[Rfam]
RNA sequence: GGGUUUCCUGCUUCAACAGUGCUUGGACGGAACCC
Numbered sequence: 001g002g003g004u005u006u007c008c009u010g011c012u013u014c015a016a017c018a019g020u021g022c023u024u025g026g027a028c029g030g031a032a033c034c035c
Base pairs, nucleotide, nucleotide: 001035002034003033004032005031007030008029010028012027013026014025015024016023017021
RNA: Iron response element I